[Rfam]
RNA sequence: UUAUAACUGAAUAAUUUACCUAAGACUCAGGUGGUCUUGUUAGACCUUAAUAUUACCUGCCGAGGAACGUAUAAAAUUUAUCCGUGUCCUCGUAUGAGAACACGGAUUUUUUGUUCUUACA
Numbered sequence: 001u002u003a004u005a006a007c008u009g010a011a012u013a014a015u016u017u018a019c020c021u022a023a024g025a026c027u028c029a030g031g032u033g034g035u036c037u038u039g040u041u042a043g044a045c046c047u048u049a050a051u052a053u054u055a056c057c058u059g060c061c062g063a064g065g066a067a068c069g070u071a072u073a074a075a076a077u078u079u080a081u082c083c084g085u086g087u088c089c090u091c092g093u094a095u096g097a098g099a100a101c102a103c104g105g106a107u108u109u110u111u112u113g114u115u116c117u118u119a120c121a
Base pairs, nucleotide, nucleotide: 028059029058030057031056032055033046034045035044081106082105083104084103085102086101087100089098090097
Shown here is a 121-nucleotide RNA sequence from Pediococcus argentinicus, a member of the family "Ribosomal protein L10 leader".
This family is a putative r-protein leader autoregulatory structure found in B. subtilis and other low-GC Gram-positive bacteria. It is located in the 5' untranslated regions of mRNAs encoding ribosomal proteins L10 and L12 (rplJ-rplL).
A search with the family's covariance model found it, with a score of 66 bits.